[Rfam]
RNA sequence: CGCGCGGGACGACCCGCGCCUUCGACGAUCAAUACGGGACGGCCCGC
Numbered sequence: 001c002g003c004g005c006g007g008g009a010c011g012a013c014c015c016g017c018g019c020c021u022u023c024g025a026c027g028a029u030c031a032a033u034a035c036g037g038g039a040c041g042g043c044c045c046g047c
Base pairs, nucleotide, nucleotide: 002019003018004017005016006015007014008013035046036045037044038043

Annotation:
A member of the RNA family "Guanidine-II riboswitch aptamer (mini-ykkC)" from Nitratireductor sp. StC3, 47 nucleotides long. The family's consensus secondary structure is taken from published work. For this family Rfam cites "Identification of 22 candidate structured RNAs in bacteria using the CMfinder comparative genomics pipeline" (Weinberg et al., Nucleic Acids Res, 2007). The match comes from Rfam's covariance-model search (40 bits).